[Rfam]
RNA sequence: UAGGCACCUCGUUAGGUGAGGCGUCUGUCCGGAUACAGGCCACUGACCCCACGACGUCGAGAGACGCCCAGGUUCAGGACACCUCUCCCCGGCUUAAGGGGUGAGGCCAGGUGGCUUCCCGCGGACUUUUCGCGGGCAUACGCCGGGCAGUGCCGAAGCUCUUACGAGAUGUGGGGU
Numbered sequence: 001u002a003g004g005c006a007c008c009u010c011g012u013u014a015g016g017u018g019a020g021g022c023g024u025c026u027g028u029c030c031g032g033a034u035a036c037a038g039g040c041c042a043c044u045g046a047c048c049c050c051a052c053g054a055c056g057u058c059g060a061g062a063g064a065c066g067c068c069c070a071g072g073u074u075c076a077g078g079a080c081a082c083c084u085c086u087c088c089c090c091g092g093c094u095u096a097a098g099g100g101g102u103g104a105g106g107c108c109a110g111g112u113g114g115c116u117u118c119c120c121g122c123g124g125a126c127u128u129u130u131c132g133c134g135g136g137c138a139u140a141c142g143c144c145g146g147g148c149a150g151u152g153c154c155g156a157a158g159c160u161c162u163u164a165c166g167a168g169a170u171g172u173g174g175g176g177u
Base pairs, nucleotide, nucleotide: 005173006172007171009169010168011165012164013097015160016159017158020154021153022152025150026149027148028147029146030145031144032143039115040114041113042112043111045075046074048072049071055066056065057064058063082106083105084104085103088100089099090098117138119136

Shown here is a 177-nucleotide RNA sequence from Streptosporangium album, a member of the family "M-box riboswitch aptamer (ykoK leader)". Taxonomically the source falls in Streptosporangium (Bacteria, Actinomycetota, Streptosporangiales, Streptosporangiaceae). M-box riboswitch, also know as ykoK leader is described as a metaloregulatory RNA that sense divalent metals and function as a genetic control element of genes related to divalent metal transport in bacteria. It was first reported upstream of the B.subtilis ykoK gene and genes with related functions in other bacteria. The base pairs follow the family's consensus structure. Rfam 15.1 lists 1,095 matches to the family in 932 species. Its family is annotated with regulation of gene expression and response to magnesium ion in the Gene Ontology.